eL15-Euryarchaeota ribosomal protein leader: a 51-nucleotide sequence from Methanosarcina sp. MTP4. The sequence is in the family's curated seed alignment. For this family Rfam cites "Discovery of 20 novel ribosomal leader candidates in bacteria and archaea" (Eckert and Weinberg, BMC Microbiol, 2020). Rfam classes the family as a cis-regulatory leader. Taxonomically the source falls in Methanosarcina (Archaea, Methanomicrobia, Methanosarcinales, Methanosarcinaceae). The base pairs follow the family's consensus structure, which is taken from published work.
RNA sequence: CGGGAUUAGCUCCCGUAGGAAUGUGGCUCGAGACCCGGGCUGAACCGUGAA
Numbered sequence: 001c002g003g004g005a006u007u008a009g010c011u012c013c014c015g016u017a018g019g020a021a022u023g024u025g026g027c028u029c030g031a032g033a034c035c036c037g038g039g040c041u042g043a044a045c046c047g048u049g050a051a
Base pairs, nucleotide, nucleotide: 001015002014003013004012005011018046019045025041026040027039028038029037